[Rfam]
RNA sequence: GAUGCGGGCCGGGCCCCUCUGGCGCGAGCGAUUGAGCCUCUUCCAUGCGGAGCGCUGAUCGUCGCGUGAUGUCGGACCGCAUCG
Numbered sequence: 001g002a003u004g005c006g007g008g009c010c011g012g013g014c015c016c017c018u019c020u021g022g023c024g025c026g027a028g029c030g031a032u033u034g035a036g037c038c039u040c041u042u043c044c045a046u047g048c049g050g051a052g053c054g055c056u057g058a059u060c061g062u063c064g065c066g067u068g069a070u071g072u073c074g075g076a077c078c079g080c081a082u083c084g
Base pairs, nucleotide, nucleotide: 006078007077009075010074011073012072022067023066024065025064026063
The record is an 84-nucleotide RNA from Novosphingobium sp. BW1, which matches "terC RNA" in Rfam. A search with the family's covariance model found it, with a score of 54 bits. The organism belongs to Novosphingobium, within Bacteria. By type it is a cis-regulatory element.